[Rfam]
RNA sequence: AUACUCUCCUGGCAGGGGCAAUACCAUGAUCCAGGAAGGUGGUUUGCCCCAAGCGAGGCUCGGCCAUUGCACUUGGGCUGUGCCGACCUCUGCGAAAUGCUGGAAUCUCGACUAAAAUUUUCUGAUAGUGUGGGACUGCGUCUGUGCUCUAUUCUUUC
Numbered sequence: 001a002u003a004c005u006c007u008c009c010u011g012g013c014a015g016g017g018g019c020a021a022u023a024c025c026a027u028g029a030u031c032c033a034g035g036a037a038g039g040u041g042g043u044u045u046g047c048c049c050c051a052a053g054c055g056a057g058g059c060u061c062g063g064c065c066a067u068u069g070c071a072c073u074u075g076g077g078c079u080g081u082g083c084c085g086a087c088c089u090c091u092g093c094g095a096a097a098u099g100c101u102g103g104a105a106u107c108u109c110g111a112c113u114a115a116a117a118u119u120u121u122c123u124g125a126u127a128g129u130g131u132g133g134g135a136c137u138g139c140g141u142c143u144g145u146g147c148u149c150u151a152u153u154c155u156u157u158c
Stems, first nucleotide, its partner, number of pairs: 014113002016049006023043005052089002055087001057084003061080005093110003096106001098103001130157001132155004138149001140147001
Rfam assigns this 158-nucleotide sequence from Hemibagrus wyckioides to the family "U1 spliceosomal RNA". From the family's description: U1 is a small nuclear RNA (snRNA) component of the spliceosome (involved in pre-mRNA splicing). Its 5' end forms complementary base pairs with the 5' splice junction, thus defining the 5' donor site of an intron. There are significant differences in sequence and secondary structure between metazoan and yeast U1 snRNAs, the latter being much longer (568 nucleotides as compared to 164 nucleotides in human). Nevertheless, secondary structure predictions suggest that all U1 snRNAs share a 'common core' consisting of helices I, II, the proximal region of III, and IV. This family does not contain the larger yeast sequences. It is annotated as a spliceosomal small nuclear RNA. The base pairs follow the family's consensus structure, which is taken from published work. It scores 79 bits against the family's covariance model. On this family, see Kretzner et al., Proc Natl Acad Sci U S A 1990: "Saccharomyces cerevisiae U1 small nuclear RNA secondary structure contains both universal and yeast-specific domains".